Annotation:
Shown here is a 67-nucleotide sequence from Cnephaeus nilssonii, a member of the family "mir-9256 microRNA precursor family". The match comes from Rfam's covariance-model search (86 bits). Lineage of the source: Eukaryota > Metazoa > Craniata > Gnathostomata > Cnephaeus.

RNA sequence: AUUUACACUGAGUGGCCAGAUUAUUACAAUCUCUGAAUGUAUAAUAAUCUGGCCACUCAGUGUAUAU
Numbered sequence: 001a002u003u004u005a006c007a008c009u010g011a012g013u014g015g016c017c018a019g020a021u022u023a024u025u026a027c028a029a030u031c032u033c034u035g036a037a038u039g040u041a042u043a044a045u046a047a048u049c050u051g052g053c054c055a056c057u058c059a060g061u062g063u064a065u066a067u
Base pairs, nucleotide, nucleotide: 004064005063006062007061008060009059010058011057012056013055014054015053016052017051019049020048021047022046023045024044025043026042028040